[Rfam]
RNA: U2 spliceosomal RNA
RNA sequence: AUACCUUUCUCGGCCUUUUGGCUCAGAUCAUGUGUAGUAUCGUUCUUAUAAGCUUAAUCGCUAUACGGUCCUCAUUGAGGACCUGCGAUUCACUUCAAUAUUUCUCGGGGCUUGUCAAUGGUGAGCUUGCUCAUUAGACUGCUAGCAUGGUUGCGGCCUUACACUACAGCCACAGCCGUGCAUCCGUC
Numbered sequence: 001a002u003a004c005c006u007u008u009c010u011c012g013g014c015c016u017u018u019u020g021g022c023u024c025a026g027a028u029c030a031u032g033u034g035u036a037g038u039a040u041c042g043u044u045c046u047u048a049u050a051a052g053c054u055u056a057a058u059c060g061c062u063a064u065a066c067g068g069u070c071c072u073c074a075u076u077g078a079g080g081a082c083c084u085g086c087g088a089u090u091c092a093c094u095u096c097a098a099u100a101u102u103u104c105u106c107g108g109g110g111c112u113u114g115u116c117a118a119u120g121g122u123g124a125g126c127u128u129g130c131u132c133a134u135u136a137g138a139c140u141g142c143u144a145g146c147a148u149g150g151u152u153g154c155g156g157c158c159u160u161a162c163a164c165u166a167c168a169g170c171c172a173c174a175g176c177c178g179u180g181c182a183u184c185c186g187u188c
Stems, first nucleotide, its partner, number of pairs: 008027003012023004047065003051062002067083007110142002115137001117135001122133004145181006152174002155171003